Small nucleolar RNA snR60/Z15/Z230/Z193/J17: a 91-nucleotide RNA from Quercus lobata.

RNA sequence: GUGGGUCAUGUGAUGAUUUAAUACGCAUAGUUCAGAUGAUAAUCUGUGAUUAACACUUUGCAUAGUCUUUCGCUCCUAUCUGAUGACCCAU
Numbered sequence: 001g002u003g004g005g006u007c008a009u010g011u012g013a014u015g016a017u018u019u020a021a022u023a024c025g026c027a028u029a030g031u032u033c034a035g036a037u038g039a040u041a042a043u044c045u046g047u048g049a050u051u052a053a054c055a056c057u058u059u060g061c062a063u064a065g066u067c068u069u070u071c072g073c074u075c076c077u078a079u080c081u082g083a084u085g086a087c088c089c090a091u
Stems, first nucleotide, its partner, number of pairs: 004088005

The literature on the family includes a 1999 paper in Science by Lowe and Eddy, "A computational screen for methylation guide snoRNAs in yeast". Gene Ontology terms of the family: RNA processing and nucleolus. The source organism's lineage runs through Eukaryota, Streptophyta, Tracheophyta, Gunneridae and Quercus.